Record summary:
The record is a 223-nucleotide sequence from uncultured eubacterium pIE1115, which matches "Bacillus sRNA ncr1575" in Rfam. The sequence is in the family's curated seed alignment. Rfam classes the family as a small RNA.

[Rfam]
RNA sequence: UACUAUUAAUCGAAAGGAGAGAUGGGUGGACAAUGAAGAACUAAUCUAAUUUUUAACAAAUGAAAUAGUAUAUUUCAGUUUAAAAACUUAGGAUUAGUCUGCCCAUUUUUCCAUAUACUAAAUAAAUGUAAGACUGAAUAGCUAAAAAGGCUAAAUAGUUUUAUUUGAGUCCUUAAAAAGUGACAUGACUAAUCCUUCCAACAUUAUUUGGGAGGAUUUUUUA
Numbered sequence: 001u002a003c004u005a006u007u008a009a010u011c012g013a014a015a016g017g018a019g020a021g022a023u024g025g026g027u028g029g030a031c032a033a034u035g036a037a038g039a040a041c042u043a044a045u046c047u048a049a050u051u052u053u054u055a056a057c058a059a060a061u062g063a064a065a066u067a068g069u070a071u072a073u074u075u076c077a078g079u080u081u082a083a084a085a086a087c088u089u090a091g092g093a094u095u096a097g098u099c100u101g102c103c104c105a106u107u108u109u110u111c112c113a114u115a116u117a118c119u120a121a122a123u124a125a126a127u128g129u130a131a132g133a134c135u136g137a138a139u140a141g142c143u144a145a146a147a148a149g150g151c152u153a154a155a156u157a158g159u160u161u162u163a164u165u166u167g168a169g170u171c172c173u174u175a176a177a178a179a180g181u182g183a184c185a186u187g188a189c190u191a192a193u194c195c196u197u198c199c200a201a202c203a204u205u206a207u208u209u210g211g212g213a214g215g216a217u218u219u220u221u222u223a
Stems, first nucleotide, its partner, number of pairs: 016112004023105004029099003042096006048089002051086004058080002061077006122170002128164009191218011

A reference for the family is Irnov et al. (2010), "Identification of regulatory RNAs in Bacillus subtilis", Nucleic Acids Res.